[Rfam]
RNA sequence: AAGAUCAUGCUUCAUAGGAUCAUUUCUAUAGUAUGGUUCUUCCGCUCUACGAUUCAACAUUGUGAGCGACUCCAACCACGAUGAUGCGGUUUGGGGUUUCUUCCUGAGCGUGAAAACGGCUCGUGGACACUCUAAGGAGUGUUCUGGGCCAUUGAUGAUCGCACUUUUCGCCAUUGCGGCGAAGAGCUGGAAGUUAACUCGAUCUGAGUGGU
Numbered sequence: 001a002a003g004a005u006c007a008u009g010c011u012u013c014a015u016a017g018g019a020u021c022a023u024u025u026c027u028a029u030a031g032u033a034u035g036g037u038u039c040u041u042c043c044g045c046u047c048u049a050c051g052a053u054u055c056a057a058c059a060u061u062g063u064g065a066g067c068g069a070c071u072c073c074a075a076c077c078a079c080g081a082u083g084a085u086g087c088g089g090u091u092u093g094g095g096g097u098u099u100c101u102u103c104c105u106g107a108g109c110g111u112g113a114a115a116a117c118g119g120c121u122c123g124u125g126g127a128c129a130c131u132c133u134a135a136g137g138a139g140u141g142u143u144c145u146g147g148g149c150c151a152u153u154g155a156u157g158a159u160c161g162c163a164c165u166u167u168u169c170g171c172c173a174u175u176g177c178g179g180c181g182a183a184g185a186g187c188u189g190g191a192a193g194u195u196a197a198c199u200c201g202a203u204c205u206g207a208g209u210g211g212u
Base pairs, nucleotide, nucleotide: 001041002040003039004038006035007034008033009032010031011030015028016027017026018025019024049063050062051061052060053059075212076211077210078209079208094200095199096198097197098196100193101192102191103190104189108162109161110160118150119149120148121147125145126144127143128141129140130139131138132137165185166184167183168182169181170180171179172178